Shown here is a 119-nucleotide RNA sequence, a member of the family "DUF3800-I RNA". About the family: Actinobacteria, Firmicutes, Fusobacteria, Proteobacteria (1 example), Tenericutes (2 examples). By type it is a small RNA.
RNA sequence: UAAGGGUGCAGUUAAUGUGUAUAAAAACUGUACACUCGUGUACCCGAAUUAACGUUUAAGCGAUAUGUAAUAUCGUCGGCCACGGGGCCGCCCCUUACAUUGGGGCGGUUUUUUUUUGG
Numbered sequence: 001u002a003a004g005g006g007u008g009c010a011g012u013u014a015a016u017g018u019g020u021a022u023a024a025a026a027a028c029u030g031u032a033c034a035c036u037c038g039u040g041u042a043c044c045c046g047a048a049u050u051a052a053c054g055u056u057u058a059a060g061c062g063a064u065a066u067g068u069a070a071u072a073u074c075g076u077c078g079g080c081c082a083c084g085g086g087g088c089c090g091c092c093c094c095u096u097a098c099a100u101u102g103g104g105g106c107g108g109u110u111u112u113u114u115u116u117u118g119g
Base pairs, nucleotide, nucleotide: 007032008031009030010029011028012026013025035086036085037084038083039082040081044079045078046077047056048055049054060076061075062074063073064072065071087109088108089107090106091105092104093103094102